This 70-nucleotide RNA belongs to the Rfam family "GP20-b RNA". Rfam classes the family as a cis-regulatory element. Pairs were carried over by alignment from the consensus structure, which is taken from published work.
RNA sequence: UUUCGGGAGGAGCAGACGUAAAAGAACACCAACAAAACUACUUAUGAGAAGCAACCUCGUAAAAAGCGUA
Numbered sequence: 001u002u003u004c005g006g007g008a009g010g011a012g013c014a015g016a017c018g019u020a021a022a023a024g025a026a027c028a029c030c031a032a033c034a035a036a037a038c039u040a041c042u043u044a045u046g047a048g049a050a051g052c053a054a055c056c057u058c059g060u061a062a063a064a065a066g067c068g069u070a
Stems, first nucleotide, its partner, number of pairs: 001018001003016002009030002012027001045059004